MIR6274 microRNA precursor family: a 105-nucleotide RNA from Prunus persica. Taxonomically the source falls in Prunus (Eukaryota, Embryophyta, eudicotyledons, Amygdaleae). Rfam links the family to the GO terms RISC complex and miRNA-mediated post-transcriptional gene silencing.
RNA sequence: GCAUAAUACUGUUUUGCCGUCUUCGGUCAAUAACACAAUGACACGUGAAAAAGUUAUCUCACGUAUUAUUGUGUUAUUGAUCGGAGAUAGCAAAAAGUGUUAUCC
Numbered sequence: 001g002c003a004u005a006a007u008a009c010u011g012u013u014u015u016g017c018c019g020u021c022u023u024c025g026g027u028c029a030a031u032a033a034c035a036c037a038a039u040g041a042c043a044c045g046u047g048a049a050a051a052a053g054u055u056a057u058c059u060c061a062c063g064u065a066u067u068a069u070u071g072u073g074u075u076a077u078u079g080a081u082c083g084g085a086g087a088u089a090g091c092a093a094a095a096a097g098u099g100u101u102a103u104c105c
Stems, first nucleotide, its partner, number of pairs: 003103003012095006019088002022085020043064006050057001
The base pairs follow the family's consensus structure, which was predicted with RNAalifold.